[Rfam]
Shown here is a 101-nucleotide sequence from Sphingomonas hengshuiensis, a member of the family "Glycine riboswitch aptamer". The source organism's lineage runs through Bacteria, Pseudomonadati, Pseudomonadota, Sphingomonadaceae and Sphingomonas. Pairs were carried over by alignment from the consensus structure.
RNA sequence: CCACGACACUCUGGAAAGCGCCCCGCGCAGGUGGGGCCACCGAAGGGGUAACUGCGGCAGUCCGCAGGAAAGCUCUCAGGUUCCGUGACAGAGGGGGCGAU
Numbered sequence: 001c002c003a004c005g006a007c008a009c010u011c012u013g014g015a016a017a018g019c020g021c022c023c024c025g026c027g028c029a030g031g032u033g034g035g036g037c038c039a040c041c042g043a044a045g046g047g048g049u050a051a052c053u054g055c056g057g058c059a060g061u062c063c064g065c066a067g068g069a070a071a072g073c074u075c076u077c078a079g080g081u082u083c084c085g086u087g088a089c090a091g092a093g094g095g096g097g098c099g100a101u
Stems, first nucleotide, its partner, number of pairs: 007095001009093005020037004039081003042077002046075003052068002